RNA sequence: GGAGCGGGCUGGACGGUCGCUGGCGGGGUUUCCCGCUGGAGGAAGGUCCGGACUCCACAGGGCAGGGUGCUGGUCAACGGCCAGGCGCAGCAAGUCGAAAGACCCAAGGCGACGGAAAGUGGCACAGAGAACAGACCGCCGAAGGUGAAUCCUGAGGGCGCCCGGCCGGUGAAUUCCGGCCGGAGUCCACGGGGCUCGCCAGGCAAGGGUGAAACGGUGAGGUAAGAGCUCACCGCGUACGUGGCGACACGGACGGCACGCCAAACCCCACCCGGAGCAACACCGCAUAGGCACGCGUUCCGGCCGCAAGGCCGGGCAGGGCGGCCCGCCCGAGCGUGCGGGUUGGUGGCUAGAGCGCAGGGGCAACCCUGCGCCCAGAGGAAUGACCGUCGGACCGGGCGACCGGUCGACAGAAUCCGGCCUACAGGCCCGCUCCGACU
Numbered sequence: 001g002g003a004g005c006g007g008g009c010u011g012g013a014c015g016g017u018c019g020c021u022g023g024c025g026g027g028g029u030u031u032c033c034c035g036c037u038g039g040a041g042g043a044a045g046g047u048c049c050g051g052a053c054u055c056c057a058c059a060g061g062g063c064a065g066g067g068u069g070c071u072g073g074u075c076a077a078c079g080g081c082c083a084g085g086c087g088c089a090g091c092a093a094g095u096c097g098a099a100a101g102a103c104c105c106a107a108g109g110c111g112a113c114g115g116a117a118a119g120u121g122g123c124a125c126a127g128a129g130a131a132c133a134g135a136c137c138g139c140c141g142a143a144g145g146u147g148a149a150u151c152c153u154g155a156g157g158g159c160g161c162c163c164g165g166c167c168g169g170u171g172a173a174u175u176c177c178g179g180c181c182g183g184a185g186u187c188c189a190c191g192g193g194g195c196u197c198g199c200c201a202g203g204c205a206a207g208g209g210u211g212a213a214a215c216g217g218u219g220a221g222g223u224a225a226g227a228g229c230u231c232a233c234c235g236c237g238u239a240c241g242u243g244g245c246g247a248c249a250c251g252g253a254c255g256g257c258a259c260g261c262c263a264a265a266c267c268c269c270a271c272c273c274g275g276a277g278c279a280a281c282a283c284c285g286c287a288u289a290g291g292c293a294c295g296c297g298u299u300c301c302g303g304c305c306g307c308a309a310g311g312c313c314g315g316g317c318a319g320g321g322c323g324g325c326c327c328g329c330c331c332g333a334g335c336g337u338g339c340g341g342g343u344u345g346g347u348g349g350c351u352a353g354a355g356c357g358c359a360g361g362g363g364c365a366a367c368c369c370u371g372c373g374c375c376c377a378g379a380g381g382a383a384u385g386a387c388c389g390u391c392g393g394a395c396c397g398g399g400c401g402a403c404c405g406g407u408c409g410a411c412a413g414a415a416u417c418c419g420g421c422c423u424a425c426a427g428g429c430c431c432g433c434u435c436c437g438a439c440u
Stems, first nucleotide, its partner, number of pairs: 001436010011425001012391007020039008044423003048420005053277004060327004065273005070084005085113001086111003114268002119266002121262003136208002138204003144200005216234006235257001236255003240251004281348004291339006319331004355374008

Shown here is a 440-nucleotide sequence from Quisquiliibacterium transsilvanicum, a member of the family "Bacterial RNase P class A". Taxonomically the source falls in Quisquiliibacterium (Bacteria, Pseudomonadota, Betaproteobacteria, Burkholderiaceae).